[Rfam]
RNA sequence: UGCGGGGUGCGCGACUGGCGAUAGGCCCGGAGCCCCAAGGGGCGCCCGUGCUGACGUGGAGACUACCGCAGGGCUACCUGCGACACCACUGGGAAGCGUGCCGCCGAAUGGUUUUCGUUGACCAUUUGGUGUUCAGCCGUUCGCCUGGGCAGCCCUU
Numbered sequence: 001u002g003c004g005g006g007g008u009g010c011g012c013g014a015c016u017g018g019c020g021a022u023a024g025g026c027c028c029g030g031a032g033c034c035c036c037a038a039g040g041g042g043c044g045c046c047c048g049u050g051c052u053g054a055c056g057u058g059g060a061g062a063c064u065a066c067c068g069c070a071g072g073g074c075u076a077c078c079u080g081c082g083a084c085a086c087c088a089c090u091g092g093g094a095a096g097c098g099u100g101c102c103g104c105c106g107a108a109u110g111g112u113u114u115u116c117g118u119u120g121a122c123c124a125u126u127u128g129g130u131g132u133u134c135a136g137c138c139g140u141u142c143g144c145c146u147g148g149g150c151a152g153c154c155c156u157u
Base pairs, nucleotide, nucleotide: 004104006102007101008100009099010098011097012096015093016092017145018144019143020142021141056089057088058087059086134152136150137149138148